Description:
A member of the RNA family "Mammalian CPEB3 ribozyme" from Alligator sinensis, 73 nucleotides long. Pairs were carried over by alignment from the consensus structure, which is taken from published work. The match comes from Rfam's covariance-model search (36 bits).
RNA sequence: UGCAAGUUUGAGGCCGUAGCAGAAGUGCUCACGGCGCGGACUGCCCGAUUCCAGUGAACCUGCAAAUUCUGCU
Dot-bracket structure: ...........[.[[..((((((((((.......)))]].]...(.(.(((....))).).)....)))))))